RNA sequence: ACGAUGUUCCGCUGUUCUAAUUUAGAAUAAUGAGCAUUGG
Numbered sequence: 001a002c003g004a005u006g007u008u009c010c011g012c013u014g015u016u017c018u019a020a021u022u023u024a025g026a027a028u029a030a031u032g033a034g035c036a037u038u039g040g
Base pairs, nucleotide, nucleotide: 003038004037005036006035007034008033009032013030015027016026017025018024
Rfam assigns this 40-nucleotide RNA sequence from Oceanobacillus bengalensis to the family "Ribosomal protein L19 leader". Lineage of the source: Bacteria > Bacillota > Bacilli > Caryophanales > Oceanobacillus. Rfam's curators write: This family is a putative r-protein leader autoregulatory structure found in B. subtilis and other low-GC Gram-positive bacteria. It is located in the 5' untranslated regions of mRNAs encoding ribosomal protein L19 (rplS). The family's consensus secondary structure was predicted with CMfinder. By type it is a cis-regulatory leader. The literature on the family includes a 1994 paper in Prog Nucleic Acid Res Mol Biol by Zengel and Lindahl, "Diverse mechanisms for regulating ribosomal protein synthesis in Escherichia coli".